[Rfam]
RNA sequence: ACUGGAGGACUAAUCAGGCUAAGUCUGAAGAGUGAGACUUAGAUGCCAGUCACCUCCUAAAAGAAAAGAGCUGGAGAGAGCAGUCCCGCUUGCAGAAGAGCGAAGGGCUGACUGCGCCAUCCAACACUC
Numbered sequence: 001a002c003u004g005g006a007g008g009a010c011u012a013a014u015c016a017g018g019c020u021a022a023g024u025c026u027g028a029a030g031a032g033u034g035a036g037a038c039u040u041a042g043a044u045g046c047c048a049g050u051c052a053c054c055u056c057c058u059a060a061a062a063g064a065a066a067a068g069a070g071c072u073g074g075a076g077a078g079a080g081c082a083g084u085c086c087c088g089c090u091u092g093c094a095g096a097a098g099a100g101c102g103a104a105g106g107g108c109u110g111a112c113u114g115c116g117c118c119a120u121c122c123a124a125c126a127c128u129c
Stems, first nucleotide, its partner, number of pairs: 003059001004057005017044001019042001021040006068122001070120001079113002081110006091102003

About this RNA: The record is a 129-nucleotide RNA sequence from Chordeiles acutipennis, which matches "Small Cajal body specific RNA 4" in Rfam. The source organism's lineage runs through Eukaryota, Opisthokonta, Eumetazoa, Teleostomi and Chordeiles. The base pairs follow the family's consensus structure, which was predicted with RNAfold. Rfam describes the family as follows. scaRNAs are a specific class of small nuclear RNAs which localise to the Cajal bodies and guide the modification of RNA polymerase II transcribed spliceosomal RNAs U1, U2, U4, U5 and U12. ACA26 belongs to the H/ACA box class of guide RNAs as it has the predicted hairpin-hinge-hairpin-tail structure, conserved H/ACA-box motifs and is found associated with GAR1. The family's RNA type in Rfam is small Cajal body RNA.